[Rfam]
RNA sequence: AAGAGCCCAGAGUUAAUAGAAACUGAGAAGAUUGACUCGGAAACAAAU
Numbered sequence: 001a002a003g004a005g006c007c008c009a010g011a012g013u014u015a016a017u018a019g020a021a022a023c024u025g026a027g028a029a030g031a032u033u034g035a036c037u038c039g040g041a042a043a044c045a046a047a048u
Stems, first nucleotide, its partner, number of pairs: 008040001010038008
Shown here is a 48-nucleotide sequence from Trichopus zeylanicus, a member of the family "Plastid-rpl16 group II-D1 intron". Gene Ontology term of the family: Group II intron splicing. Rfam's curators put it in the seed alignment. Taxonomically the source falls in Trichopus zeylanicus (Eukaryota, Mesangiospermae, Petrosaviidae, Dioscoreales). For this family Rfam cites "Retrograde signaling in plants: A critical review focusing on the GUN pathway and beyond" (Richter et al., Plant Commun, 2023). Rfam's curators write: Plastid-rpl16 is a non-coding RNA (ncRNA) recognised in plastids. It was recognised in and intronic region of a ribosome rpl16 gene. The family's consensus secondary structure was predicted with LocARNA.